The record is a 90-nucleotide RNA sequence from Sulfitobacter sabulilitoris, which matches "Glycine riboswitch aptamer" in Rfam. A search with the family's covariance model found it, with a score of 65 bits. Gene Ontology term of the family: glycine biosynthetic process.
RNA sequence: CAUUCCACCACGGGAGAACCGGCGCAACACGCCGGUGCCGAAGGAGCAACCGCCCCGGAAACUCUCAGGCCAAAGGACCGCGGUGGUAUG
Numbered sequence: 001c002a003u004u005c006c007a008c009c010a011c012g013g014g015a016g017a018a019c020c021g022g023c024g025c026a027a028c029a030c031g032c033c034g035g036u037g038c039c040g041a042a043g044g045a046g047c048a049a050c051c052g053c054c055c056c057g058g059a060a061a062c063u064c065u066c067a068g069g070c071c072a073a074a075g076g077a078c079c080g081c082g083g084u085g086g087u088a089u090g
Stems, first nucleotide, its partner, number of pairs: 006085004011080003019035004037070003040066002044064003050058002